[Rfam]
RNA sequence: GACGGGGCAUAAAAGGCCUCUUCAUGAACGACCCGACCGCAAGGUCGCAGUAGGACUGAAGAGGAGCCGAUGUUCCGUCGUACGUUUUGAAAAACGA
Numbered sequence: 001g002a003c004g005g006g007g008c009a010u011a012a013a014a015g016g017c018c019u020c021u022u023c024a025u026g027a028a029c030g031a032c033c034c035g036a037c038c039g040c041a042a043g044g045u046c047g048c049a050g051u052a053g054g055a056c057u058g059a060a061g062a063g064g065a066g067c068c069g070a071u072g073u074u075c076c077g078u079c080g081u082a083c084g085u086u087u088u089g090a091a092a093a094a095c096g097a
Base pairs, nucleotide, nucleotide: 001079002078003077004076005075006074007073008072009071010070015068016067019062020061021060022059023058024057029053034047035046036045037044038043083096084095085094